[Rfam]
Nucleotides: 073
Stems, first nucleotide, its partner, number of pairs: 001072007010025004027043005049065005
Number, partner (000 for none) and nucleotide at each position: 001072g002071c003070g004069c005068u006067c007066g008000u009000a010025g011024c012023u013022c014000a015000a016000c017000g018000g019000a020000u021000a022013g023012a024011g025010c026000a027043u028042c029041u030040g031039a032000c033000u034000a035000c036000g037000g038000a039031u040030c041029a042028g043027a044000a045000g046000g047000u048000u049065g050064g051063g052062g053061g054000u055000u056000c057000g058000a059000g060000u061053c062052c063051c064050u065049c066007c067006g068005a069004g070003c071002g072001c073000g